A member of the RNA family "Betaproteobacteria toxic small RNA" from Noviherbaspirillum sedimenti, 64 nucleotides long. On this family, see Kimelman et al., Genome Res 2012: "A vast collection of microbial genes that are toxic to bacteria". The organism belongs to Noviherbaspirillum, within Bacteria. It scores 69 bits against the family's covariance model. Rfam 15.1 lists 951 matches to the family in 508 species. About the family: Overexpression in amino aid rich medium attenuates growth, suggesting role in repressing amino acid intake and metabolism.
[Rfam]
Nucleotides: 064
Stems, first nucleotide, its partner, number of pairs: 008032008037057008
Number, partner (000 for none) and nucleotide at each position: 001000u002000g003000u004000c005000u006000c007000c008032u009031c010030c011029a012028u013027g014026u015025c016000u017000c018000c019000u020000c021000c022000u023000u024000u025015g026014a027013u028012a029011u030010g031009g032008a033000u034000u035000c036000u037057g038056g039055c040054c041053c042052g043051c044050a045000c046000a047000a048000u049000u050044u051043g052042c053041g054040g055039g056038c057037u058000u059000u060000u061000u062000u063000u064000u